[Rfam]
RNA sequence: UCCGCAUCAGAUUUCCUGGUGUAACGAAUUUUCAAGUGCUUCUUGCAAACGCAAGCUUUAUCCCGGUCUCCCCAGACCGGGAUUU
Numbered sequence: 001u002c003c004g005c006a007u008c009a010g011a012u013u014u015c016c017u018g019g020u021g022u023a024a025c026g027a028a029u030u031u032u033c034a035a036g037u038g039c040u041u042c043u044u045g046c047a048a049a050c051g052c053a054a055g056c057u058u059u060a061u062c063c064c065g066g067u068c069u070c071c072c073c074a075g076a077c078c079g080g081g082a083u084u085u
Stems, first nucleotide, its partner, number of pairs: 004022007026058002029054002031051001036046003060083007068075002